[Rfam]
RNA sequence: CGGGACGUAGCGCAGCCUGGUUAGCGCACUACCUUGGGGUGGUAGGGGUCGCGGGUUCGAAUCCCGCCGUCCCGA
Dot-bracket structure: (((((((..((((..........)))).(((((.......))))).....(((((.......)))))))))))).